[Rfam]
RNA: MIR394 microRNA precursor family
Organism: Carnegiea gigantea
RNA sequence: UUUACAGAGAUCAUUGGCAUUCUGUCCACCUCCUCAAGGAGCUCAGCUCUCUUUGUUGGGAUCGAGGUGGACUUGAAACUGGAUGUGGAGGUGGGCAUCCUGCCAAUAGAGCUCUGUUUU
Number, nucleotide and partner (000 for none) at each position: 001u000002u000003u000004a000005c000006a000007g000008a000009g000010a000011u110012c000013a000014u106015u105016g104017g103018c102019a101020u000021u000022c000023u097024g096025u095026c094027c093028a092029c091030c090031u089032c088033c087034u000035c000036a000037a000038g000039g000040a000041g000042c000043u000044c000045a000046g000047c000048u000049c000050u000051c000052u000053u000054u000055g000056u000057u000058g000059g000060g000061a000062u000063c000064g000065a000066g000067g000068u000069g000070g000071a000072c000073u000074u000075g000076a000077a000078a000079c000080u000081g000082g000083a000084u000085g000086u000087g033088g032089a031090g030091g029092u028093g027094g026095g025096c024097a023098u000099c000100c000101u019102g018103c017104c016105a015106a014107u000108a000109g000110a011111g000112c000113u000114c000115u000116g000117u000118u000119u000120u000